Rfam assigns this 60-nucleotide sequence to the family "nhaA-I RNA". Rfam describes the family as follows. Acidobacteria, Alphaproteobacteria, Betaproteobacteria and Gammaproteobacteria, Verrucomicrobia, cand. division NC10. The sequence is in the family's curated seed alignment. The family's RNA type in Rfam is riboswitch.

RNA sequence: GGGUGCCCACCACAUCAGGUGGUGAUGCAGGUCAUUCAGGUACAGGUCGGGCCGCCUGUA
Numbered sequence: 001g002g003g004u005g006c007c008c009a010c011c012a013c014a015u016c017a018g019g020u021g022g023u024g025a026u027g028c029a030g031g032u033c034a035u036u037c038a039g040g041u042a043c044a045g046g047u048c049g050g051g052c053c054g055c056c057u058g059u060a
Base pairs, nucleotide, nucleotide: 005028006027008024009023010022011021041060042059043058044057045056046055047054